A member of the RNA family "SAM riboswitch aptamer (S box leader)" from Planococcus lenghuensis, 103 nucleotides long.
The SAM riboswitch is found upstream of a number of genes which code for proteins involved in methionine or cysteine biosynthesis in Gram-positive bacteria.
The base pairs follow the family's consensus structure, which is taken from published work.
RNA sequence: UUCUUAUCAAGAGAGACGGAGGGAUUUGGCCCUUUGAUGUCUCAGCAACCGGCUUAACGGCAAAGGUGCUAAUUCCAAAAGGCGGAAGCCUUGAAGAUGAGAA
Dot-bracket structure: ((((((((....(((((...(((..[[[[)))......)))))((((.((.(((....)))...))))))...(]]]](((((....)))))..)))))))))